This 80-nucleotide sequence from Pristionchus pacificus belongs to the Rfam family "SmY spliceosomal RNA". NCBI's taxonomy places the organism under Eukaryota, Metazoa, Protostomia, Diplogasteroidea, Pristionchus. Rfam 15.1 lists 408 matches to the family in 67 species. It is annotated as a spliceosomal small nuclear RNA.
RNA sequence: AAGGUGCAAUACAAGCUCUCAGGGCCUUUACCAAGACCCAGAGUCCAGUUUUUGGAGAACCCUCCGGCUAAGGGGGGUUG
Numbered sequence: 001a002a003g004g005u006g007c008a009a010u011a012c013a014a015g016c017u018c019u020c021a022g023g024g025c026c027u028u029u030a031c032c033a034a035g036a037c038c039c040a041g042a043g044u045c046c047a048g049u050u051u052u053u054g055g056a057g058a059a060c061c062c063u064c065c066g067g068c069u070a071a072g073g074g075g076g077g078u079u080g
Stems, first nucleotide, its partner, number of pairs: 022039003026035003058079008